[Rfam]
Vault RNA: a 98-nucleotide RNA sequence from Prolemur simus.
It scores 70 bits against the family's covariance model.
For this family Rfam cites "Evolution of Vault RNAs" (Stadler et al., Mol Biol Evol, 2009).
Taxonomically the source falls in Prolemur (Eukaryota, Bilateria, Gnathostomata, Lemuriformes).
About the family: This family of RNAs are found as part of the enigmatic vault ribonucleoprotein complex. The complex consists of a major vault protein (MVP), two minor vault proteins (VPARP and TEP1), and several small untranslated RNA molecules. It has been suggested that the vault complex is involved in drug resistance.
Rfam classes the family as a non-coding RNA gene.
RNA sequence: GGGCCGGCUUUAGCUCAGCGGUUCCUUCGCCAACACUUUGUCAACCUCUUCGCGGAAGUGAAGCGGUUCGAGACCCGCCGGCACUCCCUGGCCCUUUA
Numbered sequence: 001g002g003g004c005c006g007g008c009u010u011u012a013g014c015u016c017a018g019c020g021g022u023u024c025c026u027u028c029g030c031c032a033a034c035a036c037u038u039u040g041u042c043a044a045c046c047u048c049u050u051c052g053c054g055g056a057a058g059u060g061a062a063g064c065g066g067u068u069c070g071a072g073a074c075c076c077g078c079c080g081g082c083a084c085u086c087c088c089u090g091g092c093c094c095u096u097u098a
Stems, first nucleotide, its partner, number of pairs: 002093006013082003018078004026072004